[Rfam]
RNA sequence: UCAUCAGUGAGGUUAAUCCUUGCCUGUUCCUCCUCAGGGAGAAACAGCACGUGAUGAAUGGGAGGAGGCUGAUUGUGUGAUUACAGCAGUUCCUUUCCCCUGGGGAAACGACGCACCUCAGGGGGCCCUUCUGAU
Dot-bracket structure: .......................(((.(.((((....)))).).))).......................((.(((.(....)..)))..))....(((((((((..........)))))))))...........

Description: A member of the RNA family "U8 small nucleolar RNA" from Leptobrachium leishanense, 135 nucleotides long. Taxonomically the source falls in Leptobrachium (Eukaryota, Opisthokonta, Euteleostomi, Megophryidae). For this family Rfam cites "The U8 snoRNA gene family: identification and characterization of distinct, functional U8 genes in Xenopus" (Peculis et al., Gene, 2001). A search with the family's covariance model found it, with a score of 74 bits.